RNA sequence: CUACAAACCCGUGCUGCCGCUGUUUCGAAAGAAAUGGAGGAAAGUCCGGACAGCAUAGAGCGAUGCACCAUCUAACGGAUGGGGUUCUUUUUAAGAAUACAGAAAGUGCCACAGAAAAUAACCGCCGGAGCGUCAAGGCUUGCCGAAGCGCAACGGUAAGGGUGAAAAUGUGCGGUAAGAGCGCACGGUAGUUAUGGGUAACUAUAAUUGCGGGUAAACCUUGCAUGAUGAAAUGCCCAAUAGGCAGGCGCUUGAGGACUGCUCGUCCGAUGCCUGCGGGUAGGCAGAUAGAAUGUUGCAGCAAUGUAACAUCCAGAUAAAUGGCAGCAGCCCCGCAGCAAUGCGGGGUACAAAAUCCGGCUUACAGGGUUUGUAGUUUU
Numbered sequence: 001c002u003a004c005a006a007a008c009c010c011g012u013g014c015u016g017c018c019g020c021u022g023u024u025u026c027g028a029a030a031g032a033a034a035u036g037g038a039g040g041a042a043a044g045u046c047c048g049g050a051c052a053g054c055a056u057a058g059a060g061c062g063a064u065g066c067a068c069c070a071u072c073u074a075a076c077g078g079a080u081g082g083g084g085u086u087c088u089u090u091u092u093a094a095g096a097a098u099a100c101a102g103a104a105a106g107u108g109c110c111a112c113a114g115a116a117a118a119u120a121a122c123c124g125c126c127g128g129a130g131c132g133u134c135a136a137g138g139c140u141u142g143c144c145g146a147a148g149c150g151c152a153a154c155g156g157u158a159a160g161g162g163u164g165a166a167a168a169u170g171u172g173c174g175g176u177a178a179g180a181g182c183g184c185a186c187g188g189u190a191g192u193u194a195u196g197g198g199u200a201a202c203u204a205u206a207a208u209u210g211c212g213g214g215u216a217a218a219c220c221u222u223g224c225a226u227g228a229u230g231a232a233a234u235g236c237c238c239a240a241u242a243g244g245c246a247g248g249c250g251c252u253u254g255a256g257g258a259c260u261g262c263u264c265g266u267c268c269g270a271u272g273c274c275u276g277c278g279g280g281u282a283g284g285c286a287g288a289u290a291g292a293a294u295g296u297u298g299c300a301g302c303a304a305u306g307u308a309a310c311a312u313c314c315a316g317a318u319a320a321a322u323g324g325c326a327g328c329a330g331c332c333c334c335g336c337a338g339c340a341a342u343g344c345g346g347g348g349u350a351c352a353a354a355a356u357c358c359g360g361c362u363u364a365c366a367g368g369g370u371u372u373g374u375a376g377u378u379u380u
Base pairs, nucleotide, nucleotide: 001376002375003374004373005372006371007370008369009368010367011365012329013328014327015326016325017324018323020037021036022035023034024033025032026031042363043362044361046360047359048358049357050356051230052229054227058264059263060262061261063226064225065224066223067222068082069081070080071079072078083100084098085097086096087095101221102220106219107218108215109214110213122161123160124157125156126155127154130151131150132149169187170186171185172184173183174182190209191208192207193206194205195204196203197202234286235285236284237283244277245276246275247274248273249272256268257267258266259265293312294311295310296309297308298307299306300305

Bacterial RNase P class A: a 380-nucleotide sequence from Taibaiella lutea. By type it is a ribozyme. The organism belongs to Taibaiella, within Bacteria.